skipping-rope RNA: an 81-nucleotide RNA from Streptococcus sp. sy004. The base pairs follow the family's consensus structure, which is taken from published work.

[Rfam]
RNA sequence: GAUAUUUGAGGGCAGAAAAGGUUCCUGUCGCACUCUAUAAAGGGUAUCUGAGAUGCUGGGUACGCUGACCAUCCAAAUACU
Number, nucleotide and partner (000 for none) at each position: 001g081002a000003u079004a078005u077006u076007u075008g074009a000010g000011g029012g028013c027014a026015g025016a000017a000018a000019a000020g066021g065022u064023u000024c000025c015026u014027g013028u012029c011030g000031c050032a045033c044034u043035c042036u000037a000038u000039a000040a000041a000042g035043g034044g033045u032046a000047u000048c000049u000050g031051a000052g000053a000054u000055g073056c000057u071058g070059g069060g000061u000062a000063c000064g022065c021066u020067g000068a000069c059070c058071a057072u000073c055074c008075a007076a006077a005078u004079a003080c000081u001